[Rfam]
RNA sequence: GCAUGCAGAAGAGGAGCAUUGCCCAGGCAGAUAUUUGGUGGAUCCGCAAAUCCAAAACCAACUAUUCAGGGGGAGCAGUGCCGAGAUAGACAAAAGUUGUCGGCUUUGUCUGUCGGUUGACUUGGGUUGACUCCCAUCAACUGUCAUCAGUUCAUUACUGGUGAAGAGCUUCUGAGGUU
Number, nucleotide and partner (000 for none) at each position: 001g000002c000003a000004u000005g000006c174007a173008g172009a171010a170011g169012a000013g000014g000015a000016g081017c080018a079019u078020u077021g076022c075023c000024c073025a000026g000027g000028c000029a000030g066031a065032u064033a063034u000035u061036u060037g059038g000039u000040g000041g000042a000043u000044c000045c000046g000047c000048a000049a000050a000051u000052c000053c000054a000055a000056a000057a000058c000059c037060a036061a035062c000063u033064a032065u031066u030067c000068a000069g000070g000071g000072g000073g024074a000075g022076c021077a020078g019079u018080g017081c016082c000083g000084a000085g114086a113087u112088a111089g110090a109091c108092a107093a106094a105095a000096g000097u000098u000099g000100u000101c000102g000103g000104c000105u094106u093107u092108g091109u090110c089111u088112g087113u086114c085115g142116g141117u140118u139119g138120a137121c000122u000123u000124g000125g000126g000127u000128u000129g000130a000131c000132u000133c000134c000135c000136a000137u120138c119139a118140a117141c116142u115143g000144u164145c163146a162147u161148c160149a159150g158151u000152u000153c000154a000155u000156u000157a000158c150159u149160g148161g147162u146163g145164a144165a000166g000167a000168g000169c011170u010171u009172c008173u007174g006175a000176g000177g000178u000179u000
The record is a 179-nucleotide sequence from Vibrio agarilyticus, which matches "Lysine riboswitch aptamer" in Rfam. The family's consensus secondary structure is taken from published work. Riboswitches are metabolite binding domains within certain messenger RNAs that serve as precision sensors for their corresponding targets. Allosteric rearrangement of mRNA structure is mediated by ligand binding, and this results in modulation of gene expression. This family includes riboswitches that sense lysine in a number of genes involved in lysine metabolism, including lysC. The literature on the family includes a 2003 paper in Cell by Mandal et al., "Riboswitches Control Fundamental Biochemical Pathways in Bacillus subtilis and Other Bacteria".